Glycine riboswitch aptamer: a 90-nucleotide RNA sequence from Falsochrobactrum ovis. Its family is annotated with glycine biosynthetic process in the Gene Ontology.
[Rfam]
RNA sequence: CGCCGUUCUGCGGGAGAGAGCUGGUUUAUAUCAGCCACCGAAGGGGAAAUCGCCCGAAAUCUCUCAGGUAAAUGGAACCGCAGGCAGGCA
Numbered sequence: 001c002g003c004c005g006u007u008c009u010g011c012g013g014g015a016g017a018g019a020g021c022u023g024g025u026u027u028a029u030a031u032c033a034g035c036c037a038c039c040g041a042a043g044g045g046g047a048a049a050u051c052g053c054c055c056g057a058a059a060u061c062u063c064u065c066a067g068g069u070a071a072a073u074g075g076a077a078c079c080g081c082a083g084g085c086a087g088g089c090a
Base pairs, nucleotide, nucleotide: 007084008083009082010081011080012079013078020035021034022033023032037069038068039067040065041064044063045062046061050057051056